[Rfam]
RNA sequence: AUAGAGUAUCAAGAGUAGAGUGAAACUCUCGCCAACCUGCCUACCCGGGCAAGGUGGUAAAAAGAUGCGGCUAACCGGCAACCAAACGGGGACCC
Number, nucleotide and partner (000 for none) at each position: 001a000002u000003a000004g000005a000006g068007u067008a066009u065010c064011a000012a000013g000014a000015g030016u000017a029018g028019a027020g026021u025022g000023a000024a000025a021026c020027u019028c018029u017030c015031g058032c057033c056034a000035a000036c054037c053038u052039g050040c049041c048042u000043a000044c090045c089046c088047g087048g041049g040050c039051a000052a038053g037054g036055u000056g033057g032058u031059a000060a000061a000062a000063a000064g010065a009066u008067g007068c006069g000070g079071c078072u077073a000074a000075c000076c000077g072078g071079c070080a000081a000082c000083c000084a000085a000086a000087c047088g046089g045090g044091g000092a000093c000094c000095c000
Shown here is a 95-nucleotide RNA sequence, a member of the family "SAM-I/IV (S-adenosyl methionine) riboswitch aptamer". Its family is annotated with S-adenosylmethionine metabolic process and regulation of gene expression in the Gene Ontology. The family's consensus secondary structure is taken from published work. Clan: SAM clan.